[Rfam]
RNA sequence: AGUCUGUGAUGAUACCAAUGAAGGCUUGUUUCUCUAAACAUUCGCAGUGGCCGCCUAAGAGCUUUCGCCUUCGCCUGGCUUGAGAGCUAAUGCUGCAUUUAUCCUUCCUUGGAUGUCUGAGGCU
Numbered sequence: 001a002g003u004c005u006g007u008g009a010u011g012a013u014a015c016c017a018a019u020g021a022a023g024g025c026u027u028g029u030u031u032c033u034c035u036a037a038a039c040a041u042u043c044g045c046a047g048u049g050g051c052c053g054c055c056u057a058a059g060a061g062c063u064u065u066c067g068c069c070u071u072c073g074c075c076u077g078g079c080u081u082g083a084g085a086g087c088u089a090a091u092g093c094u095g096c097a098u099u100u101a102u103c104c105u106u107c108c109u110u111g112g113a114u115g116u117c118u119g120a121g122g123c124u
Stems, first nucleotide, its partner, number of pairs: 001124004061087006

Overview:
The family of this 124-nucleotide RNA sequence from Phaseolus vulgaris is "Small nucleolar RNA SNORD14". From the family's description: U14 small nucleolar RNA (U14 snoRNA) is required for early cleavages of eukaryotic precursor rRNAs. In yeasts, this molecule possess a stem-loop region (known as the Y-domain) which is essential for function. A similar structure, but with a different consensus sequence, is found in plants, but is absent in vertebrates. The source organism's lineage runs through Eukaryota, Tracheophyta, Fabales, Papilionoideae and Phaseolus. The literature on the family includes a 1996 paper in Nucleic Acids Res by Samarsky et al., "An essential domain in Saccharomyces cerevisiae U14 snoRNA is absent in vertebrates, but conserved in other yeasts". By type it is a C/D-box small nucleolar RNA.